Background: A member of the RNA family "Makes More Granules Regulator RNA (mmgR)" from Rhodovastum atsumiense, 73 nucleotides long. About the family: SuhB later renamed mmgR (makes more granules regulator) was a putative non-coding RNA found multiple times in the Agrobacterium tumefaciens genome and related alpha-proteobacteria. Other non-coding RNAs uncovered in the same analysis include: speF, ybhL, metA, and serC.Several studies inSinorhizobium meliloti showed that suhB element is indeed a non-coding RNA:firstly it was detected on Northern blot and called Sm8RNA, secondly in an RNAseq study referred to as SmelC689.The mutant phenotype's (strain lacking the small RNA) cytoplasm contains higher content of polyhydroxybutyrate (PBH)storage granules than wild type strain. The sRNA is required to limit the PBH intracellular accumulation when the nitrogen-fixing Sinorhizobium meliloti is under condition of surplus carbon in relation to nitrogen. NCBI's taxonomy places the organism under Bacteria, Pseudomonadota, Alphaproteobacteria, Acetobacteraceae, Rhodovastum. Pairs were carried over by alignment from the consensus structure. It scores 56 bits against the family's covariance model. Its Rfam clan is "suhB sRNA clan".
RNA sequence: GCAUGCCGCCUUCUUGGACGUUUCCUCCCUAAACUUGGCGGCGCCGCAUAGGCGCCGCCUUUUUUUGCCAUAA
Numbered sequence: 001g002c003a004u005g006c007c008g009c010c011u012u013c014u015u016g017g018a019c020g021u022u023u024c025c026u027c028c029c030u031a032a033a034c035u036u037g038g039c040g041g042c043g044c045c046g047c048a049u050a051g052g053c054g055c056c057g058c059c060u061u062u063u064u065u066u067g068c069c070a071u072a073a
Base pairs, nucleotide, nucleotide: 008019010017011016037059038058039057040056041055042054043053044052045051